[Rfam]
RNA sequence: CAGCGGCAACCGCCGAGUCCGCCGUCGUGCGGAGCCGGGGACCCACCCUCACUGGGGUGAAUCGGCCUCUCUCUGGCCGUAGGGCGACUUCCACGUCCGAACCCGUCAGCUAACCCGGUAGGCGGCACAUGGAAGAAGG
Numbered sequence: 001c002a003g004c005g006g007c008a009a010c011c012g013c014c015g016a017g018u019c020c021g022c023c024g025u026c027g028u029g030c031g032g033a034g035c036c037g038g039g040g041a042c043c044c045a046c047c048c049u050c051a052c053u054g055g056g057g058u059g060a061a062u063c064g065g066c067c068u069c070u071c072u073c074u075g076g077c078c079g080u081a082g083g084g085c086g087a088c089u090u091c092c093a094c095g096u097c098c099g100a101a102c103c104c105g106u107c108a109g110c111u112a113a114c115c116c117g118g119u120a121g122g123c124g125g126c127a128c129a130u131g132g133a134a135g136a137a138g139g
Base pairs, nucleotide, nucleotide: 011124012123013122014121018033019032020031021030022029034119035118036117037116038115039114044054045053055104056103057102063079064078065077066076082098083097084096085095
This 139-nucleotide RNA sequence from Actinomadura sp. BRA 177 belongs to the Rfam family "c-di-AMP riboswitch aptamer (ydaO/yuaA leader)". Gene Ontology terms of the family: regulation of gene expression and cyclic-di-AMP binding. The source organism's lineage runs through Bacteria, Bacillati, Actinomycetota, Actinomycetes and Actinomadura.